[Rfam]
RNA sequence: GAAUUCUAUCCUUCAUUCCACCGGAGUCUGUGUCUCUAAGCAAUCAGAUUUCAGUGGUGUGAAGCGUAGAAGACA
Numbered sequence: 001g002a003a004u005u006c007u008a009u010c011c012u013u014c015a016u017u018c019c020a021c022c023g024g025a026g027u028c029u030g031u032g033u034c035u036c037u038a039a040g041c042a043a044u045c046a047g048a049u050u051u052c053a054g055u056g057g058u059g060u061g062a063a064g065c066g067u068a069g070a071a072g073a074c075a
Base pairs, nucleotide, nucleotide: 011064012063013062014061015060016059019056020055021054023052024051025050026049028047029046030045
Shown here is a 75-nucleotide sequence from Clarias magur, a member of the family "mir-205 microRNA precursor family". Its family is annotated with miRNA-mediated post-transcriptional gene silencing and RISC complex in the Gene Ontology. It scores 81 bits against the family's covariance model. A reference for the family is Lim et al. (2003), "Vertebrate microRNA genes", Science. The base pairs follow the family's consensus structure, which was predicted with RNAalifold.